The record is a 353-nucleotide sequence from Roseobacter sp. SK209-2-6, which matches "Alphaproteobacteria transfer-messenger RNA" in Rfam. The base pairs follow the family's consensus structure, which is taken from published work. About the family: Bacterial tmRNA, also known as 10Sa RNA or SsrA, is named for its dual tRNA and mRNA-like properties. Its role is to liberate the mRNA from a stalled ribosome. Lineage of the source: Bacteria > Pseudomonadati > Rhodobacterales > Roseobacteraceae > Roseobacter.

RNA sequence: GCCCUUGCAAAUCCUUCCGUCUCAUCCUAUUUCAAGGAUGUUCCCUCGGGAACUAUGGACAUAAAUGCGCUCGUAAUAAACGGAUCGGACCCGGGGGCGGUACCCGGCGACUCCACCAACCAUGCUUCAUUUGGGCAUCAAGGGGUCGAAAUAGGAUCGACGGACGUCUAAAGGGGUUAGCUUUGUCUCGGCUGUCUGCCACCGUUAUCGGCGAAAACUGUACAAUUGCAAAUGACAAUCGUGCUCCGGCAAUGGCUCUGGCUGCGUAAGCAGUUCGGGUCGCCGAAACUAAGUCCUCUCGCCUAGCCGCGUGAGGCGGGGUUCGCAGGUACCUGGCAACAGAAACCUGCACU
Numbered sequence: 001g002c003c004c005u006u007g008c009a010a011a012u013c014c015u016u017c018c019g020u021c022u023c024a025u026c027c028u029a030u031u032u033c034a035a036g037g038a039u040g041u042u043c044c045c046u047c048g049g050g051a052a053c054u055a056u057g058g059a060c061a062u063a064a065a066u067g068c069g070c071u072c073g074u075a076a077u078a079a080a081c082g083g084a085u086c087g088g089a090c091c092c093g094g095g096g097g098c099g100g101u102a103c104c105c106g107g108c109g110a111c112u113c114c115a116c117c118a119a120c121c122a123u124g125c126u127u128c129a130u131u132u133g134g135g136c137a138u139c140a141a142g143g144g145g146u147c148g149a150a151a152u153a154g155g156a157u158c159g160a161c162g163g164a165c166g167u168c169u170a171a172a173g174g175g176g177u178u179a180g181c182u183u184u185g186u187c188u189c190g191g192c193u194g195u196c197u198g199c200c201a202c203c204g205u206u207a208u209c210g211g212c213g214a215a216a217a218c219u220g221u222a223c224a225a226u227u228g229c230a231a232a233u234g235a236c237a238a239u240c241g242u243g244c245u246c247c248g249g250c251a252a253u254g255g256c257u258c259u260g261g262c263u264g265c266g267u268a269a270g271c272a273g274u275u276c277g278g279g280u281c282g283c284c285g286a287a288a289c290u291a292a293g294u295c296c297u298c299u300c301g302c303c304u305a306g307c308c309g310c311g312u313g314a315g316g317c318g319g320g321g322u323u324c325g326c327a328g329g330u331a332c333c334u335g336g337c338a339a340c341a342g343a344a345a346c347c348u349g350c351a352c353u
Stems, first nucleotide, its partner, number of pairs: 040053005057188005067181002069177004081166002085163003091107005108148007189204003195214002198212003319334004325350006